[Rfam]
RNA sequence: UCCCAAAGAUUUUGUCAGGAUAUUCUAUUGAGUGACGUCUUAUUAUGUCACUCCUCUAUAUAUAGUCUGUCUGUUACAUCUUUGGAAGAGCAAGAUCGUCGCCCGGCCAUCUUCCCGUUUUGGGUUCUUUUGGCCACUGAUGCCUCGUUUUGAGACGUCAUCCUAGACGCAUCGUGAAAUCUAUGAGUUGAACCUAGAGCAGUGUUUUCUUUUGGAAAAUUUCUACCAUCUCUUUGUUCGUAGUAAGAAAUCACACACCC
Dot-bracket structure: ..(((((..........(((((..((((.....(((((......)))))............))))..)))))........)))))...........((((....(((((....(((.....)))......))))).....((.((((...)))).))........))))....((((..(((......(((((..((((..(.((((((.....)))))))........))))..))))).....)))..))))......
RNA: Small nucleolar RNA snR191
Organism: Pichia membranifaciens